About this RNA: The family of this 97-nucleotide RNA sequence is "TPP riboswitch aptamer (THI element)".
Nucleotides: 097
Stems, first nucleotide, its partner, number of pairs: 006085004011046004016040001017033005052077003058071004
Number, partner (000 for none) and nucleotide at each position: 001000u002000u003000g004000u005000g006085g007084c008083g009082c010000c011046g012045g013044g014043g015000g016040u017033g018032c019031u020030u021029g022000c023000u024000u025000u026000a027000a028000g029021c030020a031019g032018g033017c034000u035000g036000a037000g038000a039000g040016a041000g042000u043014c044013c045012c046011u047000u048000a049000a050000a051000a052077c053076c054075u055000g056000a057000u058071c059070a060069g061068g062000a063000u064000a065000a066000u067000a068061c069060c070059u071058g072000c073000g074000a075054a076053g077052g078000g079000a080000g081000u082009g083008u084007g085006c086000c087000a088000u089000u090000g091000a092000u093000u094000u095000g096000u097000u

The base pairs follow the family's consensus structure, which is taken from published work.